This 66-nucleotide RNA sequence from Electrophorus electricus belongs to the Rfam family "Small nucleolar RNA SNORD58". Gene Ontology terms of the family: RNA processing and nucleolus. Lineage of the source: Eukaryota > Eumetazoa > Neopterygii > Gymnotoidei > Electrophorus. The family is grouped with related families in Rfam's "SNORD58 clan". snoRNA U58 is found in introns 1, 3 and 6 of the ribosomal protein RPL17 gene in humans. On this family, see Kiss-Laszlo et al., Cell 1996: "Site-specific ribose methylation of preribosomal RNA: a novel function for small nucleolar RNAs". The family's RNA type in Rfam is C/D-box small nucleolar RNA.

[Rfam]
RNA sequence: CUGCAAUGAUGACCACUUAGGACACCUUUGGAUUAUUGAUGAAAAGAAUACCAGUUUCUGAGCAGC
Numbered sequence: 001c002u003g004c005a006a007u008g009a010u011g012a013c014c015a016c017u018u019a020g021g022a023c024a025c026c027u028u029u030g031g032a033u034u035a036u037u038g039a040u041g042a043a044a045a046g047a048a049u050a051c052c053a054g055u056u057u058c059u060g061a062g063c064a065g066c
Stems, first nucleotide, its partner, number of pairs: 001065004